[Rfam]
RNA: FMN riboswitch aptamer (RFN element)
Organism: Megasphaera micronuciformis
RNA sequence: GAUAGUCUUUGAGGCGAGGUGAGGAAGCUGGGCUUUCAAUUCCCGACCGGCGGUUAUAGUCCGUGAGCUCAUGCCGAGUUGAACCGGUGCAAUUCCGGUACCGACAGUACAGUCUGGAUAAAAAAGACAGUG
Numbered sequence: 001g002a003u004a005g006u007c008u009u010u011g012a013g014g015c016g017a018g019g020u021g022a023g024g025a026a027g028c029u030g031g032g033c034u035u036u037c038a039a040u041u042c043c044c045g046a047c048c049g050g051c052g053g054u055u056a057u058a059g060u061c062c063g064u065g066a067g068c069u070c071a072u073g074c075c076g077a078g079u080u081g082a083a084c085c086g087g088u089g090c091a092a093u094u095c096c097g098g099u100a101c102c103g104a105c106a107g108u109a110c111a112g113u114c115u116g117g118a119u120a121a122a123a124a125a126g127a128c129a130g131u132g
Stems, first nucleotide, its partner, number of pairs: 003130001005128006018043002046113002048103002050064004059101002067079003083099005105116003
Dot-bracket structure: ..(.((((((.......((......................))..[[((((((.....[[))))..(((.......)))...(((((.......)))))]])).(((....]])))......)))))).)..